U1 spliceosomal RNA: a 163-nucleotide RNA sequence from Nephila pilipes. From the family's description: U1 is a small nuclear RNA (snRNA) component of the spliceosome (involved in pre-mRNA splicing). Its 5' end forms complementary base pairs with the 5' splice junction, thus defining the 5' donor site of an intron. Rfam 15.1 lists 40,184 matches to the family in 1,499 species. The family's RNA type in Rfam is spliceosomal small nuclear RNA.
[Rfam]
RNA sequence: AUAUUUACGAAGCACUGGAGUUAUCCUUGAUCAAGAAGGAGGUACUCCCGAGCAGAGGCCUAUCAUUGCACAUGGGUGGGCUGAUGUUCGCCGCAUUCGCAAGUUGUGAAUGUCGGGAGUGACAAUUUUUGGAAGUGGAGCUGCGUGAGCGCACGCAGCUCUU
Numbered sequence: 001a002u003a004u005u006u007a008c009g010a011a012g013c014a015c016u017g018g019a020g021u022u023a024u025c026c027u028u029g030a031u032c033a034a035g036a037a038g039g040a041g042g043u044a045c046u047c048c049c050g051a052g053c054a055g056a057g058g059c060c061u062a063u064c065a066u067u068g069c070a071c072a073u074g075g076g077u078g079g080g081c082u083g084a085u086g087u088u089c090g091c092c093g094c095a096u097u098c099g100c101a102a103g104u105u106g107u108g109a110a111u112g113u114c115g116g117g118a119g120u121g122a123c124a125a126u127u128u129u130u131g132g133a134a135g136u137g138g139a140g141c142u143g144c145g146u147g148a149g150c151g152c153a154c155g156c157a158g159c160u161c162u163u
Stems, first nucleotide, its partner, number of pairs: 013121004017049002020046001022044001025042004050089004055085001057082003061078004091116003094112003098108002137162006144155004